[Rfam]
RNA sequence: UAAUUUAUUUAUUAUAAAUUCUCAUCUAAUUAUAACAAAUUCAUAUUUAACUACUCAGAAUCAAUCAUUAUAAGAGGAUUGACUAAUCUUCAAUUCUUUCAUUUAUUCCCUUACUCUAGAGAAACAUUUAGCUAAAUUUAUUAGCCAAUAAAAA
Numbered sequence: 001u002a003a004u005u006u007a008u009u010u011a012u013u014a015u016a017a018a019u020u021c022u023c024a025u026c027u028a029a030u031u032a033u034a035a036c037a038a039a040u041u042c043a044u045a046u047u048u049a050a051c052u053a054c055u056c057a058g059a060a061u062c063a064a065u066c067a068u069u070a071u072a073a074g075a076g077g078a079u080u081g082a083c084u085a086a087u088c089u090u091c092a093a094u095u096c097u098u099u100c101a102u103u104u105a106u107u108c109c110c111u112u113a114c115u116c117u118a119g120a121g122a123a124a125c126a127u128u129u130a131g132c133u134a135a136a137u138u139u140a141u142u143a144g145c146c147a148a149u150a151a152a153a154a
Base pairs, nucleotide, nucleotide: 004152005151006150007149008147012143014141015140018137019136027130028129029128031126
The record is a 154-nucleotide RNA sequence from Populus tomentosa, which matches "MIR480 microRNA precursor family" in Rfam. The family has 69 seed sequences and 3,070 matches in Rfam 15.1. For this family Rfam cites "Novel and mechanical stress-responsive MicroRNAs in Populus trichocarpa that are absent from Arabidopsis" (Lu et al., Plant Cell, 2005). Its family is annotated with RISC complex and miRNA-mediated post-transcriptional gene silencing in the Gene Ontology.